[Rfam]
RNA sequence: UAUUUUGGGUAAUCGCUAUAUUAUAUAGAGGAAAGUCCAUGCUCACACAGUCUGAGAUGAUUGUAGUGUUCGUGCUUGAUGAAACAAUAAAUCAAGGCAUUAAUUUGACGGCAAUGAAAUAUCCUAAGUCUUUCGAUAUGGAUAGAGUAAUUUGAAAGUGCCACAGUGACGUAGCUUUUAUAGAAAUAUAAAAGGUGGAACGCGGUAAACCCCUCGAGUGAGCAAUCCAAAUUUGGUAGGAGCACUUGUUUAACGGAAUUCAACGUAUAAACGAGACACACUUCGCGAAAUGAAGUGGUGUAGACAGAUGGUUAUCACCUGAGUACCAGUGUGACUAGUGCACGUGAUGAGUACGAUGGAACAGAACAUGGCUUAUAGAA
Number, nucleotide and partner (000 for none) at each position: 001u000002a000003u000004u380005u379006u378007g376008g316009g315010u314011a313012a312013u311014c310015g000016c028017u027018a026019u025020a024021u000022u000023a000024u020025a019026u018027a017028g016029a000030g000031g000032a000033a374034a373035g372036u000037c371038c370039a369040u368041g367042c222043u221044c220045a219046c218047a064048c063049a062050g061051u060052c059053u000054g000055a000056g000057a000058u000059g052060a051061u050062u049063g048064u047065a000066g000067u000068g000069u000070u217071c216072g215073u000074g213075c096076u095077u094078g093079a092080u091081g000082a000083a000084a000085c000086a000087a000088u000089a000090a000091a080092u079093c078094a077095a076096g075097g109098c107099a106100u000101u000102a000103a000104u000105u000106u099107g098108a000109c097110g212111g211112c000113a152114a151115u150116g000117a000118a000119a000120u000121a143122u142123c141124c140125u000126a000127a000128g137129u136130c135131u000132u000133u000134c000135g130136a129137u128138a000139u000140g124141g123142a122143u121144a000145g000146a000147g000148u000149a000150a115151u114152u113153u000154g000155a000156a000157a000158g210159u209160g206161c205162c204163a000164c000165a000166g000167u000168g000169a000170c000171g000172u000173a000174g000175c194176u193177u192178u191179u190180a189181u188182a187183g000184a000185a000186a000187u182188a181189u180190a179191a178192a177193a176194g175195g000196u000197g000198g000199a000200a000201c000202g000203c000204g162205g161206u160207a000208a000209a159210c158211c111212c110213c074214u000215c072216g071217a070218g046219u045220g044221a043222g042223c000224a000225a000226u241227c240228c239229a000230a000231a000232u000233u000234u000235g000236g000237u000238a000239g228240g227241a226242g000243c000244a000245c275246u274247u273248g272249u271250u270251u269252a000253a000254c000255g000256g000257a000258a000259u000260u000261c000262a000263a000264c000265g000266u000267a000268u000269a251270a250271a249272c248273g247274a246275g245276a301277c300278a299279c297280a296281c295282u294283u293284c292285g291286c000287g000288a000289a000290a000291u285292g284293a283294a282295g281296u280297g279298g000299u278300g277301u276302a000303g000304a000305c000306a000307g000308a000309u000310g014311g013312u012313u011314a010315u009316c008317a000318c359319c358320u000321g000322a000323g354324u353325a352326c351327c000328a000329g000330u000331g000332u000333g000334a000335c000336u000337a000338g000339u000340g000341c000342a000343c000344g000345u000346g000347a000348u000349g000350a000351g326352u325353a324354c323355g000356a000357u000358g319359g318360a000361a000362c000363a000364g000365a000366a000367c041368a040369u039370g038371g037372c035373u034374u033375a000376u007377a000378g006379a005380a004